[Rfam]
RNA sequence: CAGUUAUUUUUAAAAAUAACCGUCUUAUUCUUUCCCUGUGGGGACCCAGUGUGCAAUGGCUGCCAACAGUAGCCUUCUUGGUAGUGUGUGCAGCUUGGUGACUAUAUGGGUUGCCCUAAGGGACCUUGGAGACAGCC
Numbered sequence: 001c002a003g004u005u006a007u008u009u010u011u012a013a014a015a016a017u018a019a020c021c022g023u024c025u026u027a028u029u030c031u032u033u034c035c036c037u038g039u040g041g042g043g044a045c046c047c048a049g050u051g052u053g054c055a056a057u058g059g060c061u062g063c064c065a066a067c068a069g070u071a072g073c074c075u076u077c078u079u080g081g082u083a084g085u086g087u088g089u090g091c092a093g094c095u096u097g098g099u100g101a102c103u104a105u106a107u108g109g110g111u112u113g114c115c116c117u118a119a120g121g122g123a124c125c126u127u128g129g130a131g132a133c134a135g136c137c
Stems, first nucleotide, its partner, number of pairs: 001053002019050002022047001025044001028043003080125003091113006
This 137-nucleotide sequence from Enhydra lutris belongs to the Rfam family "Small nucleolar RNA SNORA70". A reference for the family is Charette and Gray (2000), "Pseudouridine in RNA: what, where, how, and why", IUBMB Life. NCBI's taxonomy places the organism under Eukaryota, Metazoa, Mustelidae, Enhydra, Enhydra lutris. A search with the family's covariance model found it, with a score of 91 bits. snoRNA U70 seems to be exclusive to mammals and is a member of the H/ACA class of snoRNA which contain H (ANANNA) and ACA box motifs. H/ACA box snoRNAs are involved in the conversion of uridines to pseudouridines (5-ribosyluracil) a constituent of structural RNAs (transfer, ribosomal, small nuclear, and small nucleolar). The family's RNA type in Rfam is H/ACA-box small nucleolar RNA. The base pairs follow the family's consensus structure, which was predicted with PFOLD.